RNA sequence: GGGCGAUGAUUAUAAAGAGAGGCUUGAGUGGGGAGUAUGAACAAAACUCUCAUGGGACUGGAGAAAACUAAACCCGAAAUCGAAAUCGAUGGAGAAAAUAUAUUUUGUUUUUCCUUUUUCGAAUUUUAGGUUUUUUCUUCAUCCCUUACCCUCGAUGACGGUCCUUCCAAUGUACACUUGAUAUGAGCCCU
Numbered sequence: 001g002g003g004c005g006a007u008g009a010u011u012a013u014a015a016a017g018a019g020a021g022g023c024u025u026g027a028g029u030g031g032g033g034a035g036u037a038u039g040a041a042c043a044a045a046a047c048u049c050u051c052a053u054g055g056g057a058c059u060g061g062a063g064a065a066a067a068c069u070a071a072a073c074c075c076g077a078a079a080u081c082g083a084a085a086u087c088g089a090u091g092g093a094g095a096a097a098a099u100a101u102a103u104u105u106u107g108u109u110u111u112u113c114c115u116u117u118u119u120c121g122a123a124u125u126u127u128a129g130g131u132u133u134u135u136u137c138u139u140c141a142u143c144c145c146u147u148a149c150c151c152u153c154g155a156u157g158a159c160g161g162u163c164c165u166u167c168c169a170a171u172g173u174a175c176a177c178u179u180g181a182u183a184u185g186a187g188c189c190c191u
Base pairs, nucleotide, nucleotide: 001190002189003188004187009182010181011180012179019153020152021151022150025052026051027050028049030047036043054146055145056144060143061142062138063137064136065135066134067133072131073130074129076127077125078124080122081121082120083119084118085117091114092113093112094111095110096109097108156174157173160168161167
RNA: Small nucleolar RNA snoR125
Organism: Brassica carinata